[Rfam]
Rfam assigns this 117-nucleotide sequence from Populus tomentosa to the family "Small nucleolar RNA Z278". A search with the family's covariance model found it, with a score of 56 bits. snoZ278 is a C/D box small nucleolar RNA. Its methylation guide targets have not been reported. Rfam classes the family as a C/D-box small nucleolar RNA. Pairs were carried over by alignment from the consensus structure, which was predicted with PFOLD. NCBI's taxonomy places the organism under Eukaryota, Euphyllophyta, Mesangiospermae, Malpighiales, Populus.
RNA sequence: GCCAGUGAUGAUACAAUCCAAUUUAGUUUAGGUGUAGUGGAGCCGAGACCCUGUUUACAGGGAGAACCUACUUGGUAUAAGCUACAUUAUAAUGAUAUUAAUGGAUUUAACUGAGGC
Numbered sequence: 001g002c003c004a005g006u007g008a009u010g011a012u013a014c015a016a017u018c019c020a021a022u023u024u025a026g027u028u029u030a031g032g033u034g035u036a037g038u039g040g041a042g043c044c045g046a047g048a049c050c051c052u053g054u055u056u057a058c059a060g061g062g063a064g065a066a067c068c069u070a071c072u073u074g075g076u077a078u079a080a081g082c083u084a085c086a087u088u089a090u091a092a093u094g095a096u097a098u099u100a101a102u103g104g105a106u107u108u109a110a111c112u113g114a115g116g117c
Stems, first nucleotide, its partner, number of pairs: 001117003049062005
Dot-bracket structure: (((.............................................(((((....)))))....................................................)))